[Rfam]
Shown here is a 77-nucleotide RNA from Lactuca sativa, a member of the family "Small nucleolar RNA snoR53Y".
RNA sequence: GUUCCCGAUGAUGCAUGAAUUUGACCAUGCUAAUUCUGAUUAUGAUGAUACAUUGUUAUGUCAUUUCUGAGGGAACA
Numbered sequence: 001g002u003u004c005c006c007g008a009u010g011a012u013g014c015a016u017g018a019a020u021u022u023g024a025c026c027a028u029g030c031u032a033a034u035u036c037u038g039a040u041u042a043u044g045a046u047g048a049u050a051c052a053u054u055g056u057u058a059u060g061u062c063a064u065u066u067c068u069g070a071g072g073g074a075a076c077a
Stems, first nucleotide, its partner, number of pairs: 001076005

A reference for the family is Brown et al. (2001), "Multiple snoRNA gene clusters from Arabidopsis", RNA. Clan: snoR53 clan. A search with the family's covariance model found it, with a score of 59 bits. Lineage of the source: Eukaryota > Streptophytina > Euphyllophyta > Magnoliopsida > Lactuca. Pairs were carried over by alignment from the consensus structure, which was predicted with WAR.